[Rfam]
RNA sequence: AGCUGAUGCAUAUGGUGGCUUUCCUCCCAGUUCCACCGCAGCAGCUGUUCCCCUCUGGAGGUUGUUUUUAACCUUCAUAAUUAUAAGGGCCCUGGAGUGAUCCGGUGGCCCUCUUUU
Numbered sequence: 001a002g003c004u005g006a007u008g009c010a011u012a013u014g015g016u017g018g019c020u021u022u023c024c025u026c027c028c029a030g031u032u033c034c035a036c037c038g039c040a041g042c043a044g045c046u047g048u049u050c051c052c053c054u055c056u057g058g059a060g061g062u063u064g065u066u067u068u069u070a071a072c073c074u075u076c077a078u079a080a081u082u083a084u085a086a087g088g089g090c091c092c093u094g095g096a097g098u099g100a101u102c103c104g105g106u107g108g109c110c111c112u113c114u115u116u117u
Stems, first nucleotide, its partner, number of pairs: 001046005007040003015036004056077007086112006092105004
The record is a 117-nucleotide RNA sequence from Rhizobium sp. Leaf306, which matches "Alphaproteobacterial ar15" in Rfam. The base pairs follow the family's consensus structure. It scores 106 bits against the family's covariance model. On this family, see Torres-Quesada et al., PLoS One 2013: "Independent activity of the homologous small regulatory RNAs AbcR1 and AbcR2 in the legume symbiont Sinorhizobium meliloti". Rfam links the family to the GO term protein binding. The family's RNA type in Rfam is small RNA.